A member of the RNA family "T-box leader" from Allolucifera butyrica, 249 nucleotides long. Uncharged tRNA acts as the effector for transcription antitermination of genes in the T-box leader family. Rfam links the family to the GO term tRNA binding. Lineage of the source: Bacteria > Bacillota > Veillonellales > Veillonellaceae > Allolucifera. The match comes from Rfam's covariance-model search (106 bits).
[Rfam]
RNA sequence: UCAAAAGCUUUGACGGGGAAGAGUAGGCAGAAAACGAGCUUUUCAGCGAGCGGAGGGCAGUGUAAGCUUCGCAGGUAUCUUUCUGGUGAAUGGGCCCCUGAGCUGCUAACCGAAGUAAUAGUAGGCUUAGCCGGAUGGUCUCGCCGUUAAAACAAGAGACAGGGUAUCGGAGUCAUCCCGUACCUGAGAGCGAGGCUGUUUUAGCCUACUAAGGUGGUACCACGGAAGUGCAGAGCUUUCGUCCUUAAU
Numbered sequence: 001u002c003a004a005a006a007g008c009u010u011u012g013a014c015g016g017g018g019a020a021g022a023g024u025a026g027g028c029a030g031a032a033a034a035c036g037a038g039c040u041u042u043u044c045a046g047c048g049a050g051c052g053g054a055g056g057g058c059a060g061u062g063u064a065a066g067c068u069u070c071g072c073a074g075g076u077a078u079c080u081u082u083c084u085g086g087u088g089a090a091u092g093g094g095c096c097c098c099u100g101a102g103c104u105g106c107u108a109a110c111c112g113a114a115g116u117a118a119u120a121g122u123a124g125g126c127u128u129a130g131c132c133g134g135a136u137g138g139u140c141u142c143g144c145c146g147u148u149a150a151a152a153c154a155a156g157a158g159a160c161a162g163g164g165u166a167u168c169g170g171a172g173u174c175a176u177c178c179c180g181u182a183c184c185u186g187a188g189a190g191c192g193a194g195g196c197u198g199u200u201u202u203a204g205c206c207u208a209c210u211a212a213g214g215u216g217g218u219a220c221c222a223c224g225g226a227a228g229u230g231c232a233g234a235g236c237u238u239u240c241g242u243c244c245u246u247a248a249u
Base pairs, nucleotide, nucleotide: 007103008102015098016097017096018095026087028085029084030083031082039075040074041073050072051071052070053069054068055067106130107129108128109127110125111124132146133145134144193207194206195205196204197203198202211246212245213244214243222242223241224240225239226238227237228236229235